[Rfam]
RNA sequence: UUUGCCGGGCUGACGCCUGUCUGCCUGUCUGUGCCUGCUGUACAGGUUAGAGGAUAUUCUGCACAGCAAGUGUAGAUAGGCAGACACACUGCAACUCUUUC
Numbered sequence: 001u002u003u004g005c006c007g008g009g010c011u012g013a014c015g016c017c018u019g020u021c022u023g024c025c026u027g028u029c030u031g032u033g034c035c036u037g038c039u040g041u042a043c044a045g046g047u048u049a050g051a052g053g054a055u056a057u058u059c060u061g062c063a064c065a066g067c068a069a070g071u072g073u074a075g076a077u078a079g080g081c082a083g084a085c086a087c088a089c090u091g092c093a094a095c096u097c098u099u100u101c
Stems, first nucleotide, its partner, number of pairs: 018086002022082009034070001036068006043061003
Dot-bracket structure: .................((..(((((((((...(.((((((.(((.............))).)))))).)...)))))))))..))...............
Shown here is a 101-nucleotide sequence from Gouania willdenowi, a member of the family "mir-214 microRNA precursor family". The organism belongs to Gouania, within Eukaryota. Gene Ontology terms of the family: RISC complex and miRNA-mediated post-transcriptional gene silencing. The match comes from Rfam's covariance-model search (71 bits). A reference for the family is Shao et al. (2008), "Identification of novel chicken microRNAs and analysis of their genomic organization", Gene.